[Rfam]
RNA sequence: CGGUGAGGUAGAGGUGCAUGUAAAAUGAGUAAUCAGUUAGAGUUUGACAAACGGUGAAAAUUGGUGAAAGGGUUACAUGCCGAAGCGUAAUAAAAGUCAUACUAUUACUGCUGGGUUGUCUUUGAAGAAGAGGCAAACUGUCAUGCUGCAUAUGCAUGGGGAACUACUGAUCGA
Dot-bracket structure: ......(((((....((((((((........(((((((....................))))))).......))))))))...(((((((((..(....)..))))).))))((.((((((((.....)))))))).)).((((((.......))))))....)))))......
Numbered sequence: 001c002g003g004u005g006a007g008g009u010a011g012a013g014g015u016g017c018a019u020g021u022a023a024a025a026u027g028a029g030u031a032a033u034c035a036g037u038u039a040g041a042g043u044u045u046g047a048c049a050a051a052c053g054g055u056g057a058a059a060a061u062u063g064g065u066g067a068a069a070g071g072g073u074u075a076c077a078u079g080c081c082g083a084a085g086c087g088u089a090a091u092a093a094a095a096g097u098c099a100u101a102c103u104a105u106u107a108c109u110g111c112u113g114g115g116u117u118g119u120c121u122u123u124g125a126a127g128a129a130g131a132g133g134c135a136a137a138c139u140g141u142c143a144u145g146c147u148g149c150a151u152a153u154g155c156a157u158g159g160g161g162a163a164c165u166a167c168u169g170a171u172c173g174a
Stems, first nucleotide, its partner, number of pairs: 007168005016080008032065007084112004088107005095100001113139002116136008141159006